RNA sequence: AAAUAUGAUGUAAAUAAAUCUCGUAUAAUGCCGGGAAUACGGCCCGGACGUUUCUACCCGAAUACCGUAAAUUUUCGGACUACGAGGGAAUACUGAUGGAGC
Numbered sequence: 001a002a003a004u005a006u007g008a009u010g011u012a013a014a015u016a017a018a019u020c021u022c023g024u025a026u027a028a029u030g031c032c033g034g035g036a037a038u039a040c041g042g043c044c045c046g047g048a049c050g051u052u053u054c055u056a057c058c059c060g061a062a063u064a065c066c067g068u069a070a071a072u073u074u075u076c077g078g079a080c081u082a083c084g085a086g087g088g089a090a091u092a093c094u095g096a097u098g099g100a101g102c
Stems, first nucleotide, its partner, number of pairs: 019087007031047005058078005064072001

The record is a 102-nucleotide RNA from Paenibacillus sp. IHBB 10380, which matches "Purine riboswitch aptamer" in Rfam. Riboswitches are metabolite binding domains within certain messenger RNAs that serve as precision sensors for their corresponding targets. Taxonomically the source falls in Paenibacillus (Bacteria, Bacillati, Bacillota, Bacilli).